A member of the RNA family "mir-194 microRNA precursor family" from Liparis tanakae, 80 nucleotides long. Rfam links the family to the GO terms RISC complex and miRNA-mediated post-transcriptional gene silencing. Rfam 15.1 lists 936 matches to the family in 630 species. A reference for the family is Lagos-Quintana et al. (2003), "New microRNAs from mouse and human", RNA. The source organism's lineage runs through Eukaryota, Ctenosquamata, Eupercaria, Cottales and Liparis.
[Rfam]
RNA sequence: GGGUCUCACCAGCUGUAACAGCAUCUCCAUAUGGAACAGCUCUGGCUUCCAGUGGAGCUGCUGUUACCUGUGGUGGGACG
Numbered sequence: 001g002g003g004u005c006u007c008a009c010c011a012g013c014u015g016u017a018a019c020a021g022c023a024u025c026u027c028c029a030u031a032u033g034g035a036a037c038a039g040c041u042c043u044g045g046c047u048u049c050c051a052g053u054g055g056a057g058c059u060g061c062u063g064u065u066a067c068c069u070g071u072g073g074u075g076g077g078a079c080g
Stems, first nucleotide, its partner, number of pairs: 009073003015067008025057006032051003